The record is a 102-nucleotide RNA sequence from Catonella morbi, which matches "THF (Tetrahydrofolate) riboswitch aptamer" in Rfam. NCBI's taxonomy places the organism under Bacteria, Clostridia, Lachnospirales, Lachnospiraceae, Catonella morbi. Its family is annotated with tetrahydrofolate metabolic process in the Gene Ontology.

RNA sequence: ACCAGAGUAAGAAAAGAAGCGUUAAGUGAUAGCGAGAUGGAAUGUUGCUCCUAUACGAAAAAAUGCUGGACAUUUUGCGGUUUCUUUUCUGCAUUCGCUGCA
Numbered sequence: 001a002c003c004a005g006a007g008u009a010a011g012a013a014a015a016g017a018a019g020c021g022u023u024a025a026g027u028g029a030u031a032g033c034g035a036g037a038u039g040g041a042a043u044g045u046u047g048c049u050c051c052u053a054u055a056c057g058a059a060a061a062a063a064u065g066c067u068g069g070a071c072a073u074u075u076u077g078c079g080g081u082u083u084c085u086u087u088u089c090u091g092c093a094u095u096c097g098c099u100g101c102a
Base pairs, nucleotide, nucleotide: 003100004099005098010090011089012088013087014086015085016084017083018082019081020079021078022077026056027055029054030053031052032051034050035049036048040096041095042094043093044092060076061075062074063073064072065071
Dot-bracket structure: ..(((....(((((((((((((...((.((((.(((...[[[[[...)))))))))...((((((.....))))))))).)))))))))).]]]]].)))..